[Rfam]
RNA sequence: UUAGGUUUUCUUCAUUUUCUUCUGGAAGUUUCCUAGGAUUCUUGUUGUUGAACGUUGAUGAAGAUGAUAUGAAGAUGAAAAAUAGAAGAAG
Numbered sequence: 001u002u003a004g005g006u007u008u009u010c011u012u013c014a015u016u017u018u019c020u021u022c023u024g025g026a027a028g029u030u031u032c033c034u035a036g037g038a039u040u041c042u043u044g045u046u047g048u049u050g051a052a053c054g055u056u057g058a059u060g061a062a063g064a065u066g067a068u069a070u071g072a073a074g075a076u077g078a079a080a081a082a083u084a085g086a087a088g089a090a091g
Base pairs, nucleotide, nucleotide: 006084008082009081011079012078013077014076015075016074017073018072019071037056038055039054042051043050
Rfam assigns this 91-nucleotide RNA from Medicago truncatula to the family "MIR5298 microRNA precursor family". The match comes from Rfam's covariance-model search (76 bits).